[Rfam]
RNA sequence: GGCGUAAAGGGUGAGUAGGCGGAUAUAUAAGUCUAUGCAUAAAAUACCACAGCUCAACUGUGGACCUAUGUUGGAAACUAUAUGUCUAGAGUCUGAUAGAGGAAGUUAGAAUUUCUGGUGUAAGGGUGGAAUCUGUUGAUAUCAGAAAGAAUACCGGAGGCGAAGGCGAACUUCUGGGUCAAGACUGACGCUGAGUCACGAAAGCGUAGGGAGCAAACAGGAUUAGAUACCCUGGUAGUCUACGCUGUAAACGAUGCACACUUGGUGUUAACUAAAAGUUAGUACCGAAGCUAACGUGUUAAGUGUGCCGCCUGGGGAGUAUGCUCGCAAGAGUGAAACUCAAAGGAAU
Numbered sequence: 001g002g003c004g005u006a007a008a009g010g011g012u013g014a015g016u017a018g019g020c021g022g023a024u025a026u027a028u029a030a031g032u033c034u035a036u037g038c039a040u041a042a043a044a045u046a047c048c049a050c051a052g053c054u055c056a057a058c059u060g061u062g063g064a065c066c067u068a069u070g071u072u073g074g075a076a077a078c079u080a081u082a083u084g085u086c087u088a089g090a091g092u093c094u095g096a097u098a099g100a101g102g103a104a105g106u107u108a109g110a111a112u113u114u115c116u117g118g119u120g121u122a123a124g125g126g127u128g129g130a131a132u133c134u135g136u137u138g139a140u141a142u143c144a145g146a147a148a149g150a151a152u153a154c155c156g157g158a159g160g161c162g163a164a165g166g167c168g169a170a171c172u173u174c175u176g177g178g179u180c181a182a183g184a185c186u187g188a189c190g191c192u193g194a195g196u197c198a199c200g201a202a203a204g205c206g207u208a209g210g211g212a213g214c215a216a217a218c219a220g221g222a223u224u225a226g227a228u229a230c231c232c233u234g235g236u237a238g239u240c241u242a243c244g245c246u247g248u249a250a251a252c253g254a255u256g257c258a259c260a261c262u263u264g265g266u267g268u269u270a271a272c273u274a275a276a277a278g279u280u281a282g283u284a285c286c287g288a289a290g291c292u293a294a295c296g297u298g299u300u301a302a303g304u305g306u307g308c309c310g311c312c313u314g315g316g317g318a319g320u321a322u323g324c325u326c327g328c329a330a331g332a333g334u335g336a337a338a339c340u341c342a343a344a345g346g347a348a349u
Stems, first nucleotide, its partner, number of pairs: 001312003009309001011199004016193001018192003022086007030079002032075004037071005047063006090186003094181004101175007108152001112148008123134003160167002204245006213239002218234004256308006264286010290297002314341003323334004
The record is a 349-nucleotide part of an RNA from Borreliella burgdorferi, which matches "Bacterial small subunit ribosomal RNA" in Rfam. Rfam links the family to the GO terms structural constituent of ribosome and ribosome. Rfam's curators put it in the seed alignment. The family has 99 seed sequences and 42,628 matches in Rfam 15.1.